[Rfam]
Shown here is a 538-nucleotide part of an RNA from Propioniciclava flava, a member of the family "Bacterial small subunit ribosomal RNA". The match comes from Rfam's covariance-model search (1586 bits). The organism belongs to Propioniciclava, within Bacteria.
RNA sequence: UCAAUGGAGAGUUUGAUCCUGGCUCAGGACGAACGCUGGCGGCGUGCUUAACACAUGCAAGUCGAACGAUGAUCUGCUCUUCGGAGUGGUGAUUAGUGGCGAACGGGUGAGUAACACGUGAGUAACCUGCCCUCCACUUUGGGAUAACUGUGGGAAACUUCAGCUAAUACCGGAUAUUGAAUACUGCUCGCAUGGGUGGUGUUUGAAAGAUUUUUUGGUGGGGGAUGGACUCGCGGCCUAUCAGCUUGUUGGUGGGGUAAUGGCCUACCAAGGCGAUGACGGGUAGCCGGCCUGAGAGGGCGACCGGCCACACUGGGACUGAGAUACGGCCCAGACUCCUACGGGAGGCAGCAGUGGGGAAUAUUGCACAAUGGGCGAAAGCCUGAUGCAGCAACGCCGCGUGCGGGAUGACGGCCUUCGGGUUGUAAACCGCUUUCACCAGGGGCGAAUUUGACGGUACCUGGAGAAGAAGCACCGGCUAACUACGUGCCAGCAGCCGCGGUGAUACGUAGGGUGCGAGCGUUGUCCGGAUUUAUUG
Numbered sequence: 001u002c003a004a005u006g007g008a009g010a011g012u013u014u015g016a017u018c019c020u021g022g023c024u025c026a027g028g029a030c031g032a033a034c035g036c037u038g039g040c041g042g043c044g045u046g047c048u049u050a051a052c053a054c055a056u057g058c059a060a061g062u063c064g065a066a067c068g069a070u071g072a073u074c075u076g077c078u079c080u081u082c083g084g085a086g087u088g089g090u091g092a093u094u095a096g097u098g099g100c101g102a103a104c105g106g107g108u109g110a111g112u113a114a115c116a117c118g119u120g121a122g123u124a125a126c127c128u129g130c131c132c133u134c135c136a137c138u139u140u141g142g143g144a145u146a147a148c149u150g151u152g153g154g155a156a157a158c159u160u161c162a163g164c165u166a167a168u169a170c171c172g173g174a175u176a177u178u179g180a181a182u183a184c185u186g187c188u189c190g191c192a193u194g195g196g197u198g199g200u201g202u203u204u205g206a207a208a209g210a211u212u213u214u215u216u217g218g219u220g221g222g223g224g225a226u227g228g229a230c231u232c233g234c235g236g237c238c239u240a241u242c243a244g245c246u247u248g249u250u251g252g253u254g255g256g257g258u259a260a261u262g263g264c265c266u267a268c269c270a271a272g273g274c275g276a277u278g279a280c281g282g283g284u285a286g287c288c289g290g291c292c293u294g295a296g297a298g299g300g301c302g303a304c305c306g307g308c309c310a311c312a313c314u315g316g317g318a319c320u321g322a323g324a325u326a327c328g329g330c331c332c333a334g335a336c337u338c339c340u341a342c343g344g345g346a347g348g349c350a351g352c353a354g355u356g357g358g359g360a361a362u363a364u365u366g367c368a369c370a371a372u373g374g375g376c377g378a379a380a381g382c383c384u385g386a387u388g389c390a391g392c393a394a395c396g397c398c399g400c401g402u403g404c405g406g407g408a409u410g411a412c413g414g415c416c417u418u419c420g421g422g423u424u425g426u427a428a429a430c431c432g433c434u435u436u437c438a439c440c441a442g443g444g445g446c447g448a449a450u451u452u453g454a455c456g457g458u459a460c461c462u463g464g465a466g467a468a469g470a471a472g473c474a475c476c477g478g479c480u481a482a483c484u485a486c487g488u489g490c491c492a493g494c495a496g497c498c499g500c501g502g503u504g505a506u507a508c509g510u511a512g513g514g515u516g517c518g519a520g521c522g523u524u525g526u527c528c529g530g531a532u533u534u535a536u537u538g
Base pairs, nucleotide, nucleotide: 009025010024011023012022013021027528028527029526030525032524033523034522035521036520037519039400040399041398042397043396044395045393046392047358052356053355054354056353057352058351061100062099063098066097067096069093070092074089075088076087077086078085079084107311108310109309117235118234119233120232121231122230123229126228127227131224132223133222134221135220136219137218139173140172141171142170148163149162150161152159153158179204180203181202182201183200184199185198187196188195189194209216210215237283238282239281244274245273246272249271250270251269252268253267254266255265256264286308287307288306289305290301291300292299293298313334314333315332316331317330336347337346338345339344364390366389367388368387372385373384374383375382376381403433404432405431406430413424414423415422416421437469439464440463441462442461443460447455472517473516474515475514476513483512484511485510486509487508493500494499